RNA: Ma3 gene ribosomal frameshift signal
Organism: Alligator mississippiensis
RNA sequence: GGGAAAUGGUGGCGAGACCCAGGGAAAGAGCCAACCCGAGUCUCAGCUCCCCCAGGCUCU
Numbered sequence: 001g002g003g004a005a006a007u008g009g010u011g012g013c014g015a016g017a018c019c020c021a022g023g024g025a026a027a028g029a030g031c032c033a034a035c036c037c038g039a040g041u042c043u044c045a046g047c048u049c050c051c052c053c054a055g056g057c058u059c060u
Stems, first nucleotide, its partner, number of pairs: 014044005020038001022036002028059005